[Rfam]
RNA: Streptomyces-metH RNA
Organism: Streptomyces sviceus
RNA sequence: UUCGUCCGUCCCGUGGACGUGCCGACCAUCCUCGCGACGACCCGGCUACCCUGGCGUGGUGCGCCCGGCGUCGGACGACGCGCGGGCGCCUGAAGCCGACAGCCGUCGCAACUGAGGGAGCCCCUUCAUG
Numbered sequence: 001u002u003c004g005u006c007c008g009u010c011c012c013g014u015g016g017a018c019g020u021g022c023c024g025a026c027c028a029u030c031c032u033c034g035c036g037a038c039g040a041c042c043c044g045g046c047u048a049c050c051c052u053g054g055c056g057u058g059g060u061g062c063g064c065c066c067g068g069c070g071u072c073g074g075a076c077g078a079c080g081c082g083c084g085g086g087c088g089c090c091u092g093a094a095g096c097c098g099a100c101a102g103c104c105g106u107c108g109c110a111a112c113u114g115a116g117g118g119a120g121c122c123c124c125u126u127c128a129u130g
Stems, first nucleotide, its partner, number of pairs: 060092001061089003068083004095109002098107003